A member of the RNA family "Clostridiales-1 RNA" from Butyrivibrio hungatei, 164 nucleotides long. The family has 194 seed sequences and 1,172 matches in Rfam 15.1. Taxonomically the source falls in Butyrivibrio (Bacteria, Bacillati, Lachnospirales, Lachnospiraceae).
RNA sequence: CGAUAUAAGGAUGAAGGGAAAUCCAAAUCUGUGCUUGCACAGAGAUUUGGAUUUUUCUGAAGACUGAACGGACAUGAGGAAAAAAGAUACGCGAGCAUAGCGAGCGGAUUGAUUUCCGAAUGGACGUAGGAUUGCGAGAGCGAAGCGGAGCAAUCCGUAUAUCG
Numbered sequence: 001c002g003a004u005a006u007a008a009g010g011a012u013g014a015a016g017g018g019a020a021a022u023c024c025a026a027a028u029c030u031g032u033g034c035u036u037g038c039a040c041a042g043a044g045a046u047u048u049g050g051a052u053u054u055u056u057c058u059g060a061a062g063a064c065u066g067a068a069c070g071g072a073c074a075u076g077a078g079g080a081a082a083a084a085a086g087a088u089a090c091g092c093g094a095g096c097a098u099a100g101c102g103a104g105c106g107g108a109u110u111g112a113u114u115u116c117c118g119a120a121u122g123g124a125c126g127u128a129g130g131a132u133u134g135c136g137a138g139a140g141c142g143a144a145g146c147g148g149a150g151c152a153a154u155c156c157g158u159a160u161a162u163c164g
Stems, first nucleotide, its partner, number of pairs: 001164007009064001012061001015058014029042005068127003073122003078117004086110003090106003129156007140146002